[Rfam]
The family of this 62-nucleotide RNA sequence from Streptomyces apricus is "Actino-pnp RNA".

RNA sequence: GCCGGUCCUCGGUAGUGGCCCCCGGGCGAAUGGGAACCCGGGAGCUUCGAUCGAAGACCGGC
Numbered sequence: 001g002c003c004g005g006u007c008c009u010c011g012g013u014a015g016u017g018g019c020c021c022c023c024g025g026g027c028g029a030a031u032g033g034g035a036a037c038c039c040g041g042g043a044g045c046u047u048c049g050a051u052c053g054a055a056g057a058c059c060g061g062c
Base pairs, nucleotide, nucleotide: 001062002061003060004059005058006057007056009054010053011052012051013050017046018045019044021042022041023040024039025038026037